RNA sequence: GACGGACCCGCUCGAGCGGGUGGCUCGGCCCGGCGCCUAUCCCCGGGACCAUG
Numbered sequence: 001g002a003c004g005g006a007c008c009c010g011c012u013c014g015a016g017c018g019g020g021u022g023g024c025u026c027g028g029c030c031c032g033g034c035g036c037c038u039a040u041c042c043c044c045g046g047g048a049c050c051a052u053g
Base pairs, nucleotide, nucleotide: 006021007020008019009018010017011016029047030046031045032044033043
Shown here is a 53-nucleotide sequence from Sphingomonas oligophenolica, a member of the family "sul1 RNA". The family has 54 seed sequences and 519 matches in Rfam 15.1. The organism belongs to Sphingomonas, within Bacteria. The family's RNA type in Rfam is riboswitch. The base pairs follow the family's consensus structure, which is taken from published work.